[Rfam]
RNA sequence: GGCGGUCUUCGGUAGUGGCUGCCGGGCUCCCACUCGGGAAGUCGGCCGCUUCGAUCGAUGGCCGCA
Numbered sequence: 001g002g003c004g005g006u007c008u009u010c011g012g013u014a015g016u017g018g019c020u021g022c023c024g025g026g027c028u029c030c031c032a033c034u035c036g037g038g039a040a041g042u043c044g045g046c047c048g049c050u051u052c053g054a055u056c057g058a059u060g061g062c063c064g065c066a
Stems, first nucleotide, its partner, number of pairs: 002065006009058005017050003021046005028040001030038001
The family of this 66-nucleotide sequence from Mycobacterium triviale is "Actino-pnp RNA". NCBI's taxonomy places the organism under Bacteria, Bacillati, Mycobacteriaceae, Mycobacterium, Mycobacterium (subgen. Mycolicibacillus). It is annotated as a cis-regulatory element.